[Rfam]
RNA sequence: AACUGAAAAAGGCAAACAUAGUGAAAACUAUGGACGCAAAGCCACGGGUCUAAAGUAUCGUGUAGUACCAUGAUAGCCGGGUUACCAGU
Numbered sequence: 001a002a003c004u005g006a007a008a009a010a011g012g013c014a015a016a017c018a019u020a021g022u023g024a025a026a027a028c029u030a031u032g033g034a035c036g037c038a039a040a041g042c043c044a045c046g047g048g049u050c051u052a053a054a055g056u057a058u059c060g061u062g063u064a065g066u067a068c069c070a071u072g073a074u075a076g077c078c079g080g081g082u083u084a085c086c087a088g089u
Base pairs, nucleotide, nucleotide: 012037013036017032018031019030020029021028022027040083041082042081043080045079046078047077048074049073050072055068056067057066058065
Annotation: Shown here is an 89-nucleotide RNA from Pelotomaculum isophthalicicum, a member of the family "c-di-GMP-I riboswitch aptamer". The family is grouped with related families in Rfam's "c-di-GMP_I riboswitch clan".